This 189-nucleotide RNA sequence from Daucus carota belongs to the Rfam family "U2 spliceosomal RNA". NCBI's taxonomy places the organism under Eukaryota, eudicotyledons, campanulids, Apiales, Daucus carota. The family is grouped with related families in Rfam's "U2 clan". On this family, see Zwieb, Nucleic Acids Res 1997: "The uRNA database". It is annotated as a spliceosomal small nuclear RNA. Rfam's curators write: U2 is a small nuclear RNA (snRNA) component of the spliceosome (involved in pre-mRNA splicing). Complementary binding between U2 snRNA (in an area lying towards the 5' end but 3' to hairpin I) and the branchpoint sequence (BPS) of the intron results the bulging out of an unpaired adenosine, on the BPS, which initiates a nucleophilic attack at the intronic 5' splice site, thus starting the first of two transesterification reactions that mediate splicing. Rfam links the family to the GO terms pre-mRNA branch point binding, U2 snRNP and mRNA branch site recognition.

[Rfam]
RNA sequence: AUAUCUUUUUCGGUCUUUUGGCUAAGAUCAAGUGUAGUAUCUGUUCUUGUCAGUUCAGAUAUGUGAAUCACUGGUUCACACGAUAUUAAAUUUAUUUUUUAAGGGGGGAGUUCAGUACAGUAGCUUGCUCCUGGGUUCUUCGAGUGUCGCCUCAGCUUUGCACUAUAGCUUUGGCCUGGCACACCCCAC
Dot-bracket structure: .......(((.((((....)))).)))....................((((......)))).(((((((...)))))))...........................((((..(......(.((....)).)...)..))))..((((((.(..(((...........)))..)...)))))).......